[Rfam]
RNA sequence: CCAAAGGCUCUUUUAAGAGCCACCUCAAAAACUAUAAAAGAUGAUUU
Numbered sequence: 001c002c003a004a005a006g007g008c009u010c011u012u013u014u015a016a017g018a019g020c021c022a023c024c025u026c027a028a029a030a031a032c033u034a035u036a037a038a039a040g041a042u043g044a045u046u047u
Stems, first nucleotide, its partner, number of pairs: 006021006